[Rfam]
RNA sequence: AUCACUUUUAGGCCUUUUAGCUAAGAUCAAGUGUAGUAUCUGUUUAGUUUAACAUUUGAUAUGUCCUCUAUCCGAGGACAAUAUAUUAAAUGGAUUUUUGGAACUAGGAGAUAGAAUAGGACCUUGCUCCAUCCACUUCACGCAUAGACCUGGUAUUGCAAUACUUCCAGGAACAGUGCACCCCCU
Numbered sequence: 001a002u003c004a005c006u007u008u009u010a011g012g013c014c015u016u017u018u019a020g021c022u023a024a025g026a027u028c029a030a031g032u033g034u035a036g037u038a039u040c041u042g043u044u045u046a047g048u049u050u051a052a053c054a055u056u057u058g059a060u061a062u063g064u065c066c067u068c069u070a071u072c073c074g075a076g077g078a079c080a081a082u083a084u085a086u087u088a089a090a091u092g093g094a095u096u097u098u099u100g101g102a103a104c105u106a107g108g109a110g111a112u113a114g115a116a117u118a119g120g121a122c123c124u125u126g127c128u129c130c131a132u133c134c135a136c137u138u139c140a141c142g143c144a145u146a147g148a149c150c151u152g153g154u155a156u157u158g159c160a161a162u163a164c165u166u167c168c169a170g171g172a173a174c175a176g177u178g179c180a181c182c183c184c185c186u
Stems, first nucleotide, its partner, number of pairs: 007026003011022003044059004063079006107139004114132001119130003142179004147174001149171005
The record is a 186-nucleotide RNA sequence from Callorhinus ursinus, which matches "U2 spliceosomal RNA" in Rfam.
Gene Ontology terms of the family: U2 snRNP, mRNA branch site recognition and pre-mRNA branch point binding.
Rfam describes the family as follows. U2 is a small nuclear RNA (snRNA) component of the spliceosome (involved in pre-mRNA splicing).
Taxonomically the source falls in Callorhinus (Eukaryota, Deuterostomia, Teleostomi, Amniota).
The family's RNA type in Rfam is spliceosomal small nuclear RNA.
The family is grouped with related families in Rfam's "U2 clan".